[Rfam]
Shown here is a 106-nucleotide RNA sequence from Physcomitrium patens, a member of the family "MIR2084 microRNA precursor family". Rfam links the family to the GO terms RISC complex and miRNA-mediated post-transcriptional gene silencing. Pairs were carried over by alignment from the consensus structure, which was predicted with RNAalifold.
RNA sequence: AGUAUCUUGAAAUUCGUGGAAGCGCCUGCAUUGUUGGAUUGUGGACUACAACGGAGGAGUAGCCCACAAUCCAUCGAAGCAGGCGCUUCAACGACUUUCAGAUUUU
Numbered sequence: 001a002g003u004a005u006c007u008u009g010a011a012a013u014u015c016g017u018g019g020a021a022g023c024g025c026c027u028g029c030a031u032u033g034u035u036g037g038a039u040u041g042u043g044g045a046c047u048a049c050a051a052c053g054g055a056g057g058a059g060u061a062g063c064c065c066a067c068a069a070u071c072c073a074u075c076g077a078a079g080c081a082g083g084c085g086c087u088u089c090a091a092c093g094a095c096u097u098u099c100a101g102a103u104u105u106u
Base pairs, nucleotide, nucleotide: 004103005102006101009099010098011097012096014094015093016092017091019089020088021087022086023085024084025083026082027081028080029079035073036072037071038070039069040068041067042066043065044064046062047061048060049059